[Rfam]
RNA sequence: UACUCUGGAAAGCCUAAUGGCACCGAAGGAGCAAUCUACUUUAGAGAAACUCUCAGGUAAAAGCAACAGAGUA
Numbered sequence: 001u002a003c004u005c006u007g008g009a010a011a012g013c014c015u016a017a018u019g020g021c022a023c024c025g026a027a028g029g030a031g032c033a034a035u036c037u038a039c040u041u042u043a044g045a046g047a048a049a050c051u052c053u054c055a056g057g058u059a060a061a062a063g064c065a066a067c068a069g070a071g072u073a
Stems, first nucleotide, its partner, number of pairs: 001073007014020002022058003025054002029052003035045002
Dot-bracket structure: (((((((......((...)).(((((..(((...((.......))....))))).)))........)))))))
The record is a 73-nucleotide RNA sequence from Andreesenia angusta, which matches "Glycine riboswitch aptamer" in Rfam.